[Rfam]
RNA sequence: UAUUUAAAGUGCCAAACUUGUUGUGAAGCAAGGACGGAAAGCUAUGGGUCUUUUGAGUAAAGAUCGCCAGGUUACAAAU
Number, nucleotide and partner (000 for none) at each position: 001u000002a000003u000004u000005u000006a000007a000008a000009g000010u000011g000012c037013c036014a000015a000016a000017c032018u031019u030020g029021u028022u027023g000024u000025g000026a000027a022028g021029c020030a019031a018032g017033g000034a000035c000036g013037g012038a000039a000040a073041g072042c071043u070044a000045u069046g068047g067048g064049u063050c062051u061052u060053u059054u000055g000056a000057g000058u000059a053060a052061a051062g050063a049064u048065c000066g000067c047068c046069a045070g043071g042072u041073u040074a000075c000076a000077a000078a000079u000
RNA: c-di-GMP-I riboswitch aptamer
Organism: Sulfurimonas aquatica